Shown here is a 171-nucleotide sequence from Stenotrophomonas sp. BIIR7, a member of the family "Proteobacterial sRNA sX4". Lineage of the source: Bacteria > Pseudomonadota > Gammaproteobacteria > Lysobacteraceae > Stenotrophomonas. Pairs were carried over by alignment from the consensus structure, which was predicted with RNAalifold. The family's RNA type in Rfam is small RNA.

[Rfam]
RNA sequence: GCCGGGGACCAUCUGGAGAGGUGGCAGAGCGGUUGAAUGUACCUGACUCGAAAUCAGGCAGGCGUUUAUAGCGCCUCGGGGGUUCGAAUCCCCCCCUCUCCGCCAGAUUCGCAAAAAAGGCCACCCAUUGGGUGGCCUUUUUUGCGUCUCUGACGGAGAGGGGGGGAUUGC
Number, nucleotide and partner (000 for none) at each position: 001g000002c079003c078004g077005g076006g075007g074008a000009c000010c000011a000012u028013c027014u026015g025016g000017a000018g000019a000020g000021g000022u000023g000024g000025c015026a014027g013028a012029g072030c071031g000032g000033u000034u068035g067036a066037a065038u064039g063040u062041a000042c058043c057044u056045g055046a054047c000048u000049c000050g000051a000052a000053a000054u046055c045056a044057g043058g042059c000060a000061g000062g040063c039064g038065u037066u036067u035068a034069u000070a000071g030072c029073g000074c007075c006076u005077c004078g003079g002080g000081g000082g000083u000084u000085c000086g000087a000088a000089u000090c000091c166092c165093c164094c163095c162096c161097u000098c000099u000100c000101c134102g133103c132104c131105a000106g000107a000108u000109u000110c000111g000112c000113a000114a000115a000116a000117a000118a000119g000120g000121c000122c000123a000124c000125c000126c000127a000128u000129u000130g000131g104132g103133u102134g101135g000136c000137c000138u000139u000140u000141u000142u000143u000144g000145c155146g154147u153148c000149u000150c000151u000152g000153a147154c146155g145156g000157a000158g000159a000160g000161g096162g095163g094164g093165g092166g091167a000168u000169u000170g000171c000